[Rfam]
RNA: Bacteroidales-1 6S-Bacteroidales RNA suggested
RNA sequence: GGCCGCAUGUCUCGAUAUUGCGAAACUCAUCAUUCAAUAUAAUUCCGAGACUUAGUUCAUCAGUUGAUGGCGGGCCGCACUGCCUUCGGGUGGAGACUGUUUACAGUCCGGCGGAUUACAAAGAUUGUUUGAACACUCAAACCCUGUCUUCCGGAGUUUAGAUUAUCCAGACUGCGGCUACUUUA
Numbered sequence: 001g002g003c004c005g006c007a008u009g010u011c012u013c014g015a016u017a018u019u020g021c022g023a024a025a026c027u028c029a030u031c032a033u034u035c036a037a038u039a040u041a042a043u044u045c046c047g048a049g050a051c052u053u054a055g056u057u058c059a060u061c062a063g064u065u066g067a068u069g070g071c072g073g074g075c076c077g078c079a080c081u082g083c084c085u086u087c088g089g090g091u092g093g094a095g096a097c098u099g100u101u102u103a104c105a106g107u108c109c110g111g112c113g114g115a116u117u118a119c120a121a122a123g124a125u126u127g128u129u130u131g132a133a134c135a136c137u138c139a140a141a142c143c144c145u146g147u148c149u150u151c152c153g154g155a156g157u158u159u160a161g162a163u164u165a166u167c168c169a170g171a172c173u174g175c176g177g178c179u180a181c182u183u184u185a
Base pairs, nucleotide, nucleotide: 055134056133057132058131059129061127062126063125064124065123068120069119075114076113077112078111082091083090084089097106098105099104